Mu-gpT-DE RNA: a 47-nucleotide RNA sequence. It is annotated as a small RNA.
[Rfam]
RNA sequence: UCCUGACAGCAUUAUGCUGACACUCGCCACGACAGGAGAUUGACAUG
Numbered sequence: 001u002c003c004u005g006a007c008a009g010c011a012u013u014a015u016g017c018u019g020a021c022a023c024u025c026g027c028c029a030c031g032a033c034a035g036g037a038g039a040u041u042g043a044c045a046u047g
Base pairs, nucleotide, nucleotide: 002036003035004034005033007019008018009017010016